[Rfam]
RNA sequence: GCGUCGGUGUAGCCAAGUGGUUACUUCUUCAAGAAACGAUUCGGUGUACUCCUGAGUCCCCGGGUUCGACCACCGGCGCUGUCCGACGUUUUG
Numbered sequence: 001g002c003g004u005c006g007g008u009g010u011a012g013c014c015a016a017g018u019g020g021u022u023a024c025u026u027c028u029u030c031a032a033g034a035a036a037c038g039a040u041u042c043g044g045u046g047u048a049c050u051c052c053u054g055a056g057u058c059c060c061c062g063g064g065u066u067c068g069a070c071c072a073c074c075g076g077c078g079c080u081g082u083c084c085g086a087c088g089u090u091u092u093g
Stems, first nucleotide, its partner, number of pairs: 002088006012077003017073004026069002